[Rfam]
This 81-nucleotide RNA from Legionella drancourtii belongs to the Rfam family "RAGATH-32 RNA". It is one of the family's seed sequences. Rfam 15.1 lists 38 matches to the family in 31 species. NCBI's taxonomy places the organism under Bacteria, Pseudomonadota, Gammaproteobacteria, Legionella, Legionella drancourtii.
RNA sequence: GUGGCUGGACGUUUGAGUCGGGAAACCCUUCAUGGAUAUCUGCCAUUCGGCAGCGUAGAUUUCUUUAGAAAUUUACUGUCA
Numbered sequence: 001g002u003g004g005c006u007g008g009a010c011g012u013u014u015g016a017g018u019c020g021g022g023a024a025a026c027c028c029u030u031c032a033u034g035g036a037u038a039u040c041u042g043c044c045a046u047u048c049g050g051c052a053g054c055g056u057a058g059a060u061u062u063c064u065u066u067a068g069a070a071a072u073u074u075a076c077u078g079u080c081a
Stems, first nucleotide, its partner, number of pairs: 037057003040053005058073006